[Rfam]
RNA sequence: CACACGUGAGGCACGGGAUUUUCCGGGAGAAAUCCGGAUUGUUCCACCGGUGGGCGCAGCAAAGAUGCGCUCGACGCCUUGCGGAGGUUCAACCGGAAAAGGAGAAAAAGG
Numbered sequence: 001c002a003c004a005c006g007u008g009a010g011g012c013a014c015g016g017g018a019u020u021u022u023c024c025g026g027g028a029g030a031a032a033u034c035c036g037g038a039u040u041g042u043u044c045c046a047c048c049g050g051u052g053g054g055c056g057c058a059g060c061a062a063a064g065a066u067g068c069g070c071u072c073g074a075c076g077c078c079u080u081g082c083g084g085a086g087g088u089u090c091a092a093c094c095g096g097a098a099a100a101g102g103a104g105a106a107a108a109a110g111g
Stems, first nucleotide, its partner, number of pairs: 001086001003084001005083007015045002023036001026034001053071005
RNA: rpsB sRNA